[Rfam]
The record is a 282-nucleotide RNA sequence from Nannospalax galili, which matches "Mason-Pfizer monkey virus packaging signal" in Rfam. A search with the family's covariance model found it, with a score of 118 bits. Pairs were carried over by alignment from the consensus structure, which was predicted with PFOLD. Rfam classes the family as a cis-regulatory element. Rfam links the family to the GO term viral genome packaging.
RNA sequence: UGGUGCCCAGCAUGGGCCUGGAUACUGAGGACAAAGUGAGGGACACGACGGAGUAAAGAAGGGGUGUGCACCCGAUCAAACAAUAGUUCGGAGGCAUCUCGGUAGCUUGCUGUGACUGAGCCAACAGGUAAGUUGGUCAUGCAAUUUAAAUUAUGGGGCAAGCAUUGAGUCAGCAUCAGAAAUAUGUGAUACAGUUAAGAGAAGCGUUACAGGCAAGAGGAGUAAAGGUUACAACUGAGGAUUUAUUUCAUUUCUUUGAUUUUAUAAAAGACAUCUGCCCAU
Number, nucleotide and partner (000 for none) at each position: 001u000002g000003g000004u000005g000006c030007c029008c000009a000010g000011c000012a000013u024014g023015g000016g000017c000018c000019u000020g000021g000022a000023u014024a013025c000026u000027g000028a000029g007030g006031a000032c000033a000034a000035a000036g046037u045038g000039a000040g000041g000042g000043a000044c000045a037046c036047g000048a000049c000050g000051g000052a000053g000054u000055a000056a000057a000058g000059a000060a000061g000062g000063g000064g000065u000066g000067u000068g000069c000070a000071c000072c000073c000074g000075a000076u000077c000078a000079a000080a000081c000082a000083a000084u000085a133086g000087u131088u000089c128090g000091g000092a000093g000094g122095c118096a117097u000098c114099u000100c112101g111102g110103u000104a000105g000106c000107u000108u000109g000110c102111u101112g100113u000114g098115a000116c000117u096118g095119a000120g000121c000122c094123a000124a000125c000126a000127g000128g089129u000130a000131a087132g000133u085134u000135g000136g000137u000138c000139a000140u160141g159142c158143a000144a000145u157146u156147u155148a154149a000150a000151u000152u000153a000154u148155g147156g146157g145158g142159c141160a140161a000162g000163c000164a000165u000166u209167g208168a207169g205170u204171c000172a000173g000174c000175a000176u000177c000178a000179g000180a000181a000182a000183u000184a000185u000186g000187u000188g000189a000190u000191a000192c000193a000194g000195u000196u000197a000198a000199g000200a000201g000202a000203a000204g170205c169206g000207u168208u167209a166210c000211a000212g000213g000214c000215a000216a000217g257218a256219g255220g254221a253222g252223u000224a000225a000226a244227g243228g242229u241230u240231a000232c000233a000234a000235c000236u000237g000238a000239g000240g230241a229242u228243u227244u226245a000246u000247u000248u000249c000250a000251u000252u222253u221254c220255u219256u218257u217258g000259a000260u000261u000262u000263u000264a000265u000266a000267a282268a000269a000270g279271a000272c277273a000274u000275c000276u000277g272278c000279c270280c000281a000282u267